Rfam assigns this 150-nucleotide RNA sequence from Rahnella aquatilis to the family "EFASI RNA". It is one of the family's seed sequences.
[Rfam]
RNA sequence: ACGACACGACAUCGAUGGCGACACCGGGAAACCGGUGUGUGGAGGCAGUCUGACGAACGUCAGCCCGGCGAAAGCCGCGAACGGAUCAGAGAUCCGGGGCGCCUUGCAAGAACUCAACCAUUCGCCGCCCCGGUGCACAGAUGUCUGUCG
Numbered sequence: 001a002c003g004a005c006a007c008g009a010c011a012u013c014g015a016u017g018g019c020g021a022c023a024c025c026g027g028g029a030a031a032c033c034g035g036u037g038u039g040u041g042g043a044g045g046c047a048g049u050c051u052g053a054c055g056a057a058c059g060u061c062a063g064c065c066c067g068g069c070g071a072a073a074g075c076c077g078c079g080a081a082c083g084g085a086u087c088a089g090a091g092a093u094c095c096g097g098g099g100c101g102c103c104u105u106g107c108a109a110g111a112a113c114u115c116a117a118c119c120a121u122u123c124g125c126c127g128c129c130c131c132g133g134u135g136c137a138c139a140g141a142u143g144u145c146u147g148u149c150g
Stems, first nucleotide, its partner, number of pairs: 002150004008145006019041002021038006042105004050063005082097001083095005